[Rfam]
RNA: IMES-4 RNA motif
RNA sequence: AUUAUUACACGCAAAGGUAAUAAUCAAUUUAAUAAAAGGAAACUAUUAUUAAAUUGUAUCGGGAGGAAAUGCACGAUACA
Numbered sequence: 001a002u003u004a005u006u007a008c009a010c011g012c013a014a015a016g017g018u019a020a021u022a023a024u025c026a027a028u029u030u031a032a033u034a035a036a037a038g039g040a041a042a043c044u045a046u047u048a049u050u051a052a053a054u055u056g057u058a059u060c061g062g063g064a065g066g067a068a069a070u071g072c073a074c075g076a077u078a079c080a
Stems, first nucleotide, its partner, number of pairs: 001024008026055010037044002056079006